[Rfam]
RNA sequence: GUGCACAGUGAACACCCAUGGGUGCUAACGUAGCUCCCCCUGGUCUCCUGUAUCUGUGCCACAGUAACUCUGAUCUGUACCUCUGCAUCAGGAGAGCCUGCUCCUCUCCUGCAUGUAUUCAGCGGAUCAGAACAGUC
Numbered sequence: 001g002u003g004c005a006c007a008g009u010g011a012a013c014a015c016c017c018a019u020g021g022g023u024g025c026u027a028a029c030g031u032a033g034c035u036c037c038c039c040c041u042g043g044u045c046u047c048c049u050g051u052a053u054c055u056g057u058g059c060c061a062c063a064g065u066a067a068c069u070c071u072g073a074u075c076u077g078u079a080c081c082u083c084u085g086c087a088u089c090a091g092g093a094g095a096g097c098c099u100g101c102u103c104c105u106c107u108c109c110u111g112c113a114u115g116u117a118u119u120c121a122g123c124g125g126a127u128c129a130g131a132a133c134a135g136u137c
Base pairs, nucleotide, nucleotide: 003059004058005057006056007055008054010053013050014049016043017042018041020039022036024034025033026032061076063074065072066071083122084121085120086115087114088113090110091109092108093107094106095105096104